The family of this 106-nucleotide RNA sequence from Shouchella oshimensis is "SAM riboswitch aptamer (S box leader)".

[Rfam]
RNA sequence: CACUUAUCAAGAGCGACUGAGGGAAUAGGCCCGUUGACGUCCAGCAACCUCCACUUUUUGGAAGGUGCCAAAUCCUACAGAAUCAUUCUAUUCUGGAAGAUAAGUC
Numbered sequence: 001c002a003c004u005u006a007u008c009a010a011g012a013g014c015g016a017c018u019g020a021g022g023g024a025a026u027a028g029g030c031c032c033g034u035u036g037a038c039g040u041c042c043a044g045c046a047a048c049c050u051c052c053a054c055u056u057u058u059u060g061g062a063a064g065g066u067g068c069c070a071a072a073u074c075c076u077a078c079a080g081a082a083u084c085a086u087u088c089u090a091u092u093c094u095g096g097a098a099g100a101u102a103a104g105u106c
Base pairs, nucleotide, nucleotide: 002105003104004103005102006101007100008099013042015041016040017039021032022031023030026077027076028075029074044068045067046066048065049064050062051061052060053059073098078095079094080093081092082091083090